Nucleotides: 148
Stems, first nucleotide, its partner, number of pairs: 002147004007142001014134002018130008027121003033118015048101006056093003060088001063085004070077002
Number, partner (000 for none) and nucleotide at each position: 001000c002147u003146c004145u005144u006000c007142u008000c009000a010000u011000u012000a013000u014134g015133c016000a017000a018130g019129u020128g021127u022126g023125u024124u025123c026000c027121u028120c029119u030000a031000u032000u033118u034117u035116u036115g037114a038113u039112g040111c041110u042109a043108a044107a045106g046105g047104u048101g049100g050099a051098u052097g053096c054000u055000c056093c057092a058091g059000u060088u061000c062000a063085a064084a065083c066082a067000c068000u069000u070077c071076a072000c073000a074000a075000a076071u077070g078000a079000u080000a081000u082066u083065g084064u085063u086000a087000a088060a089000u090000a091058u092057u093056g094000u095000a096053g097052u098051a099050u100049u101048c102000u103000u104047a105046c106045c107044u108043u109042u110041a111040g112039c113038g114037u115036c116035a117034a118033g119029a120028g121027a122000u123025g124024a125023a126022c127021a128020c129019a130018c131000c132000c133015g134014c135000c136000c137000u138000a139000c140000a141000a142007a143000a144005a145004a146003g147002a148000c
The family of this 148-nucleotide RNA sequence from Sorghum bicolor is "MIR6234 microRNA precursor family". The match comes from Rfam's covariance-model search (109 bits).